[Rfam]
RNA sequence: GUAAACCAAGACAACAAAUUCCAGCUCGAAUAAAUUUCUUGCCUGAGCCGACGUCUUGGUAAAGCAAACUUCUUUUUGAUCCUUGAUUAGUUUUAUAAUUAGUCGAGUUUGCACGAAGUGUACAU
Numbered sequence: 001g002u003a004a005a006c007c008a009a010g011a012c013a014a015c016a017a018a019u020u021c022c023a024g025c026u027c028g029a030a031u032a033a034a035u036u037u038c039u040u041g042c043c044u045g046a047g048c049c050g051a052c053g054u055c056u057u058g059g060u061a062a063a064g065c066a067a068a069c070u071u072c073u074u075u076u077u078g079a080u081c082c083u084u085g086a087u088u089a090g091u092u093u094u095a096u097a098a099u100u101a102g103u104c105g106a107g108u109u110u111g112c113a114c115g116a117a118g119u120g121u122a123c124a125u
Base pairs, nucleotide, nucleotide: 005060006059007058008057009056010055011054012053022045023044024043047052072118073117074116075115077113078112079110082107083106084105085104088101089100090099091098092097

This 125-nucleotide RNA sequence from Pristionchus pacificus belongs to the Rfam family "Nematode snoRNA ceN125". Gene Ontology terms of the family: nucleolus and RNA processing. A reference for the family is Jia et al. (2007), "Systematic identification of non-coding RNA 2,2,7-trimethylguanosine cap structures in Caenorhabditis elegans", BMC Mol Biol. It scores 68 bits against the family's covariance model.